[Rfam]
RNA sequence: UGAGAACUGGUUCGAGAGCCAAACCCAGUAUAAAAAACUAAGAACAU
Number, nucleotide and partner (000 for none) at each position: 001u000002g000003a000004g000005a000006a029007c028008u027009g026010g025011u000012u000013c000014g000015a000016g039017a000018g000019c000020c000021a000022a000023a000024c000025c010026c009027a008028g007029u006030a000031u000032a000033a000034a000035a000036a000037a000038c000039u016040a000041a000042g000043a000044a000045c000046a000047u000
The family of this 47-nucleotide RNA sequence from Catenibacterium sp. CAG:290 is "PreQ1 (pre queuosine) riboswitch aptamer". Lineage of the source: Bacteria > Bacillati > Erysipelotrichia > Coprobacillaceae > Catenibacterium. This family is a bacterial riboswitch that binds to the metabolite preQ1, an intermediate in the biosynthesis of the modified nucleoside queuosine from GTP. One example of this riboswitch is located in the leader of the Bacillus subtilis ykvJKLM (queCDEF) operon which encodes four genes necessary for queuosine production. Pairs were carried over by alignment from the consensus structure.